[Rfam]
RNA sequence: UGAUCGGGAGGUGUGCGGUGGGACGCAUGCCGGGAAUUGAUCGGGUUUUGUUGUCUCUAUUGGGCAGACCGCCGGGGCCCGACGGCGUGACGC
Numbered sequence: 001u002g003a004u005c006g007g008g009a010g011g012u013g014u015g016c017g018g019u020g021g022g023a024c025g026c027a028u029g030c031c032g033g034g035a036a037u038u039g040a041u042c043g044g045g046u047u048u049u050g051u052u053g054u055c056u057c058u059a060u061u062g063g064g065c066a067g068a069c070c071g072c073c074g075g076g077g078c079c080c081g082a083c084g085g086c087g088u089g090a091c092g093c
Base pairs, nucleotide, nucleotide: 001043002042003041004040005039010031011030012029013028014027015026016025017024067091069089070087071086072085073084074083
Record summary:
This 93-nucleotide sequence belongs to the Rfam family "Rhodo-rpoB RNA". The family's consensus secondary structure is taken from published work.